Background:
Shown here is a 90-nucleotide RNA sequence from Chrysochloris asiatica, a member of the family "Small nucleolar RNA SNORD116". Lineage of the source: Eukaryota > Eumetazoa > Tetrapoda > Afrosoricida > Chrysochloris. The family's consensus secondary structure was predicted with PFOLD. The family's RNA type in Rfam is C/D-box small nucleolar RNA. Gene Ontology terms of the family: nucleolus and RNA processing.
RNA sequence: CAAUCAAUGAUGAUGUCCACACAAACAUUCCUUGAAAAUGCUGAACAAAUGAGUGAAAAGUCAGCACCAUCUCACUCAACAAACAGGUCC
Numbered sequence: 001c002a003a004u005c006a007a008u009g010a011u012g013a014u015g016u017c018c019a020c021a022c023a024a025a026c027a028u029u030c031c032u033u034g035a036a037a038a039u040g041c042u043g044a045a046c047a048a049a050u051g052a053g054u055g056a057a058a059a060g061u062c063a064g065c066a067c068c069a070u071c072u073c074a075c076u077c078a079a080c081a082a083a084c085a086g087g088u089c090c
Stems, first nucleotide, its partner, number of pairs: 003088003026055005032048003